[Rfam]
RNA: Purine riboswitch aptamer
Organism: Paraliobacillus quinghaiensis
RNA sequence: UAAUUUAAUAGAAAAACUCGUCGUAUAAUCUGGGGAAUAAGGCUCUAGAGUUUCUAUUAGACCGCCGUAAAUGGUCUAACUACGCAGAAGAAUAAAUUAUAU
Numbered sequence: 001u002a003a004u005u006u007a008a009u010a011g012a013a014a015a016a017c018u019c020g021u022c023g024u025a026u027a028a029u030c031u032g033g034g035g036a037a038u039a040a041g042g043c044u045c046u047a048g049a050g051u052u053u054c055u056a057u058u059a060g061a062c063c064g065c066c067g068u069a070a071a072u073g074g075u076c077u078a079a080c081u082a083c084g085c086a087g088a089a090g091a092a093u094a095a096a097u098u099a100u101a102u
Base pairs, nucleotide, nucleotide: 018088019087022084023083024082025081029049030048031047032046033045034044035043058078059077060076061075062074063073064072
Dot-bracket structure: .................((..((((...(((((((.......)))))))........(((((((.......)))))))..))))..))..............